[Rfam]
Background:
Alphaproteobacteria transfer-messenger RNA: a 370-nucleotide RNA from a Rhodobacterales bacterium.

RNA sequence: CCCCUUUCAUUUCAGGUGAAAAGCCCUUAUAUCAAGCGUGCUGGGCAACCAGCUAUGGCAAUAAAUGGUCAGUGCAAUAAGCCUAUCGGACCCGGGGGCGGUACCCGGCGCCUCCACCCAAGCCCACGAAAUUUCCACCCGGAAAACUUGGGUUUCGGCGGGGGCGAAACAGGAUCGACGAGGGUGUAAAGACUGUGCUUUUGCUCGGCAUUGUACCACCGUUAUCGGGCUUACUUAAUAGUUGCAAAUGACAACUAUGCUAUGGACAACGCUGUCGCUGCGUAACGCAGUGCCAGUCGUCCUUUAAAGCCCUGUUGGGUUAGCUCCUACAGGCGGGGUUCGGAGGCACCUGGCAACAGAAGCCUCCACU
Numbered sequence: 001c002c003c004c005u006u007u008c009a010u011u012u013c014a015g016g017u018g019a020a021a022a023g024c025c026c027u028u029a030u031a032u033c034a035a036g037c038g039u040g041c042u043g044g045g046c047a048a049c050c051a052g053c054u055a056u057g058g059c060a061a062u063a064a065a066u067g068g069u070c071a072g073u074g075c076a077a078u079a080a081g082c083c084u085a086u087c088g089g090a091c092c093c094g095g096g097g098g099c100g101g102u103a104c105c106c107g108g109c110g111c112c113u114c115c116a117c118c119c120a121a122g123c124c125c126a127c128g129a130a131a132u133u134u135c136c137a138c139c140c141g142g143a144a145a146a147c148u149u150g151g152g153u154u155u156c157g158g159c160g161g162g163g164g165c166g167a168a169a170c171a172g173g174a175u176c177g178a179c180g181a182g183g184g185u186g187u188a189a190a191g192a193c194u195g196u197g198c199u200u201u202u203g204c205u206c207g208g209c210a211u212u213g214u215a216c217c218a219c220c221g222u223u224a225u226c227g228g229g230c231u232u233a234c235u236u237a238a239u240a241g242u243u244g245c246a247a248a249u250g251a252c253a254a255c256u257a258u259g260c261u262a263u264g265g266a267c268a269a270c271g272c273u274g275u276c277g278c279u280g281c282g283u284a285a286c287g288c289a290g291u292g293c294c295a296g297u298c299g300u301c302c303u304u305u306a307a308a309g310c311c312c313u314g315u316u317g318g319g320u321u322a323g324c325u326c327c328u329a330c331a332g333g334c335g336g337g338g339u340u341c342g343g344a345g346g347c348a349c350c351u352g353g354c355a356a357c358a359g360a361a362g363c364c365u366c367c368a369c370u
Stems, first nucleotide, its partner, number of pairs: 040053005057205005067198001070195004082184003086181003092108005109166007206221003213230001216228002336351004342367006
Dot-bracket structure: .......................................(((((....)))))...(((((.....(..((((........(((.(((...(((((.......)))))(((((((............................................)))))))............)))))).......))))..)..)))))(((....[..[[.))).....]].].........................................................................................................[[[[..((((((]]]]..........))))))...
Notes
By type it is a non-coding RNA gene. For this family Rfam cites "Variations on the tmRNA gene" (Mao et al., RNA Biol, 2010). The match comes from Rfam's covariance-model search (300 bits).